[Rfam]
Rfam assigns this 114-nucleotide RNA from Acipenser ruthenus to the family "Potassium channel RNA editing signal". By type it is a cis-regulatory element. Lineage of the source: Eukaryota > Opisthokonta > Metazoa > Acipenseriformes > Acipenser. Its family is annotated with adenosine to inosine editing in the Gene Ontology.
RNA sequence: GUUGGCUAUGGCGAUAUUUAUCCCAAAACACUUCUAGGAAAAAUAGUUGGUGGGCUGUGUUGUAUUGCAGGGGUUUUAGUGAUAGCCCUGCCUAUACCAAUCAUUGUGAACAAC
Numbered sequence: 001g002u003u004g005g006c007u008a009u010g011g012c013g014a015u016a017u018u019u020a021u022c023c024c025a026a027a028a029c030a031c032u033u034c035u036a037g038g039a040a041a042a043a044u045a046g047u048u049g050g051u052g053g054g055c056u057g058u059g060u061u062g063u064a065u066u067g068c069a070g071g072g073g074u075u076u077u078a079g080u081g082a083u084a085g086c087c088c089u090g091c092c093u094a095u096a097c098c099a100a101u102c103a104u105u106g107u108g109a110a111c112a113a114c
Base pairs, nucleotide, nucleotide: 001114002113004111007108008107009106010105011104013102014101015100019096020095021094037077038076039075040074049063